[Rfam]
RNA sequence: UCCUCAUUGUGCAUGCUGUGUGUGUUUCUUAUGGGUCCACACAGCGCCUGCAAUGUGGAGG
Numbered sequence: 001u002c003c004u005c006a007u008u009g010u011g012c013a014u015g016c017u018g019u020g021u022g023u024g025u026u027u028c029u030u031a032u033g034g035g036u037c038c039a040c041a042c043a044g045c046g047c048c049u050g051c052a053a054u055g056u057g058g059a060g061g
Stems, first nucleotide, its partner, number of pairs: 002058002005055007014046001016044006
This 61-nucleotide sequence from Salmo salar belongs to the Rfam family "mir-460 microRNA precursor family".
Rfam 15.1 lists 1,029 matches to the family in 498 species.
The source organism's lineage runs through Eukaryota, Metazoa, Chordata, Salmoniformes and Salmo.
The sequence is in the family's curated seed alignment.
Its family is annotated with RISC complex and miRNA-mediated post-transcriptional gene silencing in the Gene Ontology.